The family of this 66-nucleotide RNA sequence from Caenorhabditis brenneri is "mir-90 microRNA precursor family". Rfam links the family to the GO terms RISC complex and miRNA-mediated post-transcriptional gene silencing. For this family Rfam cites "An extensive class of small RNAs in Caenorhabditis elegans" (Lee and Ambros, Science, 2001). The family's consensus secondary structure was predicted with RNAalifold.
RNA sequence: GGCUUUCAACAACGAUAUCAACCGAUUUUCAGUAAAUUGCGAGUUGAUAUGUUGUUUGAAUGCCCC
Dot-bracket structure: (((.(((((((((.((((((((((...............)).)))))))))))))).))).)))..